[Rfam]
RNA sequence: CCCACACGUAUGUGAGUAGGACCCCAAAGGAUCACCAUCAAAUUUGGCAUAGAUCUCUAAAAACGUUAUUACAUGGGUGUGGGACAUGACUUUUUUAGAGAUCUAUGUCAAUUUGAUGGUGAUCAUUUGGGGUUCCACUUACAUGGGUGUGGG
Numbered sequence: 001c002c003c004a005c006a007c008g009u010a011u012g013u014g015a016g017u018a019g020g021a022c023c024c025c026a027a028a029g030g031a032u033c034a035c036c037a038u039c040a041a042a043u044u045u046g047g048c049a050u051a052g053a054u055c056u057c058u059a060a061a062a063a064c065g066u067u068a069u070u071a072c073a074u075g076g077g078u079g080u081g082g083g084a085c086a087u088g089a090c091u092u093u094u095u096u097a098g099a100g101a102u103c104u105a106u107g108u109c110a111a112u113u114u115g116a117u118g119g120u121g122a123u124c125a126u127u128u129g130g131g132g133u134u135c136c137a138c139u140u141a142c143a144u145g146g147g148u149g150u151g152g153g
Stems, first nucleotide, its partner, number of pairs: 002152006009145005015139003019135010030124003034120010045110019065090004069082005
Dot-bracket structure: .((((((.(((((.(((.((((((((((.(((.((((((((((.(((((((((((((((((((.(((((((((....)))))....)))).))))))))))))))))))))))))))))).))).)))))))))).))).))))).)))))).
MIR8565 microRNA precursor family: a 153-nucleotide sequence from Amborella trichopoda. It scores 136 bits against the family's covariance model.